[Rfam]
RNA sequence: AAAAAUAAGGAGUAAUAUCAAAUUUCUUGUUAUAUUAAGAGGAUUAGUAUUGCUUCUUAUU
Dot-bracket structure: .....((((((((((((...(..((((((......))))))..)...))))))))))))..
Numbered sequence: 001a002a003a004a005a006u007a008a009g010g011a012g013u014a015a016u017a018u019c020a021a022a023u024u025u026c027u028u029g030u031u032a033u034a035u036u037a038a039g040a041g042g043a044u045u046a047g048u049a050u051u052g053c054u055u056c057u058u059a060u061u
Stems, first nucleotide, its partner, number of pairs: 006059012021044001024041006
The record is a 61-nucleotide RNA sequence from Manihot esculenta, which matches "Plastid-psbA-4 3UTR RNA" in Rfam. The family's consensus secondary structure was predicted with LocARNA. Rfam classes the family as a cis-regulatory element. Plastid psbA-4 is a non-coding RNA (ncRNA) present in plastids. It was identified in inverted repeat sequences in the 3 prime untranslate region (3UTR) of photosystem II quinone-binding protein (psbA). On this family, see Richter et al., Plant Commun 2023: "Retrograde signaling in plants: A critical review focusing on the GUN pathway and beyond".